[Rfam]
RNA sequence: GGGUGCUUGAGGCUGUCUGGCGUUAAGCAUUCGCGAGGUUCCAGAUGGACAAAAGCCCCAGGCGAUAUUUCUAUCAACCUGAGGCCUACGUUCGAACCUAAGCAAUUCGGAUGUUAGUCUCUUCUUUGCAAGGAGGCAAGACAUUGUAUG
Dot-bracket structure: (((.((((..(.((((((((.(.(.............)).)))))))).)..)))))))(((.((((....))))..)))(((((..(((((((((.........)))))))))..)))))...(...............).........
Source information: A member of the RNA family "sok antitoxin (CssrC)" from Escherichia coli, 150 nucleotides long. It is one of the family's seed sequences. Taxonomically the source falls in Escherichia coli O127:H6 (Bacteria, Pseudomonadati, Enterobacteriaceae, Escherichia).